[Rfam]
RNA sequence: GGAUCGAUGAUGACCCCACAAAUGCAUUCCUUGGAAAUCUGAACAAAAUGAGUGAGAAAACCCUACACGUCUCCUCAUCGGAACUGAGGUCC
Numbered sequence: 001g002g003a004u005c006g007a008u009g010a011u012g013a014c015c016c017c018a019c020a021a022a023u024g025c026a027u028u029c030c031u032u033g034g035a036a037a038u039c040u041g042a043a044c045a046a047a048a049u050g051a052g053u054g055a056g057a058a059a060a061c062c063c064u065a066c067a068c069g070u071c072u073c074c075u076c077a078u079c080g081g082a083a084c085u086g087a088g089g090u091c092c
Stems, first nucleotide, its partner, number of pairs: 001092005025054005031046003
Rfam assigns this 92-nucleotide RNA sequence from Tursiops truncatus to the family "Small nucleolar RNA SNORD116". The source organism's lineage runs through Eukaryota, Teleostomi, Euteleostomi, Amniota and Tursiops. The base pairs follow the family's consensus structure, which was predicted with PFOLD.